[Rfam]
Notes
Shown here is an 87-nucleotide RNA from Acinetobacter gerneri, a member of the family "Glycine riboswitch aptamer". Its family is annotated with glycine biosynthetic process in the Gene Ontology. The source organism's lineage runs through Bacteria, Gammaproteobacteria, Moraxellales, Acinetobacter and Acinetobacter gerneri. Pairs were carried over by alignment from the consensus structure.
RNA sequence: AAAAUGAAUGCAGGAGAGCAGUGCUAAACACUCGCCGAAGGAGCAACGACCCCGGAAACUCUCAGGCAAAAGGACUGUAUUCAUGAC
Numbered sequence: 001a002a003a004a005u006g007a008a009u010g011c012a013g014g015a016g017a018g019c020a021g022u023g024c025u026a027a028a029c030a031c032u033c034g035c036c037g038a039a040g041g042a043g044c045a046a047c048g049a050c051c052c053c054g055g056a057a058a059c060u061c062u063c064a065g066g067c068a069a070a071a072g073g074a075c076u077g078u079a080u081u082c083a084u085g086a087c
Base pairs, nucleotide, nucleotide: 006082007081008080009079010078011077012076013075020032021031022030023029034067035066036065037063038062041061042060043059047054048053